[Rfam]
RNA sequence: GCGAGGAAUGGUGCCCCAAAAGGCCGAACUGCAGUGUCCCCAUCGACAGUUUGCACUCUGUGUGAGCCCACGGUGACAAAACCUCCUGAAGCGAAACACGGGUCUGACCUCAGC
Numbered sequence: 001g002c003g004a005g006g007a008a009u010g011g012u013g014c015c016c017c018a019a020a021a022g023g024c025c026g027a028a029c030u031g032c033a034g035u036g037u038c039c040c041c042a043u044c045g046a047c048a049g050u051u052u053g054c055a056c057u058c059u060g061u062g063u064g065a066g067c068c069c070a071c072g073g074u075g076a077c078a079a080a081a082c083c084u085c086c087u088g089a090a091g092c093g094a095a096a097c098a099c100g101g102g103u104c105u106g107a108c109c110u111c112a113g114c
Stems, first nucleotide, its partner, number of pairs: 001114002003111004013104001015102001023032002034099003040093001041091001043089003049071002053067002056064001072085002075082001
This 114-nucleotide RNA from Chinchilla lanigera belongs to the Rfam family "Small nucleolar RNA SNORD89". For this family Rfam cites "RNomics: an experimental approach that identifies 201 candidates for novel, small, non-messenger RNAs in mouse" (Huttenhofer et al., EMBO J, 2001). Lineage of the source: Eukaryota > Opisthokonta > Vertebrata > Glires > Chinchilla. By type it is a C/D-box small nucleolar RNA. The base pairs follow the family's consensus structure, which was predicted with RNAalifold.